[Rfam]
RNA sequence: UGGUGCUGGCUGCGUGUAACAGCAACUCCAUGUGGAAAAUGUUUCUGUUCCAGUGGAGGUGCUGCUACUUGCAGAGAGACA
Numbered sequence: 001u002g003g004u005g006c007u008g009g010c011u012g013c014g015u016g017u018a019a020c021a022g023c024a025a026c027u028c029c030a031u032g033u034g035g036a037a038a039a040u041g042u043u044u045c046u047g048u049u050c051c052a053g054u055g056g057a058g059g060u061g062c063u064g065c066u067a068c069u070u071g072c073a074g075a076g077a078g079a080c081a
Base pairs, nucleotide, nucleotide: 010074011073012072016068017067018066020064021063022062023061026058027057028056029055030054031053033052034051035050
Source information
mir-194 microRNA precursor family: an 81-nucleotide sequence from Labrus bergylta. Pairs were carried over by alignment from the consensus structure, which was predicted with RNAalifold. The literature on the family includes a 2003 paper in Mol Cancer Res by Michael et al., "Reduced accumulation of specific microRNAs in colorectal neoplasia".